[Rfam]
RNA sequence: UAGCACUUGAUACUAACCAAGCUAUCUAUAUCUUAGUCUCACGUCAAAGGUUCGUGAAGUAUUGUGAGAGCUGGGUUUAAGAAGUGCAAUAUUAAAACAAAAGCCAUGAGCCUUUUAAGCCCAGUGUGUAAAGAUACACUCUGAGUUAUAACUCAAAGGCACAACU
Numbered sequence: 001u002a003g004c005a006c007u008u009g010a011u012a013c014u015a016a017c018c019a020a021g022c023u024a025u026c027u028a029u030a031u032c033u034u035a036g037u038c039u040c041a042c043g044u045c046a047a048a049g050g051u052u053c054g055u056g057a058a059g060u061a062u063u064g065u066g067a068g069a070g071c072u073g074g075g076u077u078u079a080a081g082a083a084g085u086g087c088a089a090u091a092u093u094a095a096a097a098c099a100a101a102a103g104c105c106a107u108g109a110g111c112c113u114u115u116u117a118a119g120c121c122c123a124g125u126g127u128g129u130a131a132a133g134a135u136a137c138a139c140u141c142u143g144a145g146u147u148a149u150a151a152c153u154c155a156a157a158g159g160c161a162c163a164a165c166u
Stems, first nucleotide, its partner, number of pairs: 003087006015077004020072004025067002027061003031057002033054001035052005103160003124139006140157001142155005

A member of the RNA family "Small Cajal body specific RNA 1" from Microcebus murinus, 166 nucleotides long. On this family, see Darzacq et al., EMBO J 2002: "Cajal body-specific small nuclear RNAs: a novel class of 2'-O-methylation and pseudouridylation guide RNAs". Its family is annotated with Cajal body, RNA processing and nucleolus in the Gene Ontology. The family's RNA type in Rfam is small Cajal body RNA. scaRNAs are a specific class of small nuclear RNAs which localise to the Cajal bodies and guide the modification of RNA polymerase II transcribed spliceosomal RNAs U1, U2, U4, U5 and U12. ACA35 belong to the H/ACA box class of guide RNAs as it has the predicted hairpin-hinge-hairpin-tail structure, conserved H/ACA-box motifs and is found associated with GAR1. It is predicted to guide pseudouridylation of the U2 spliceosomal snRNA at residue U89.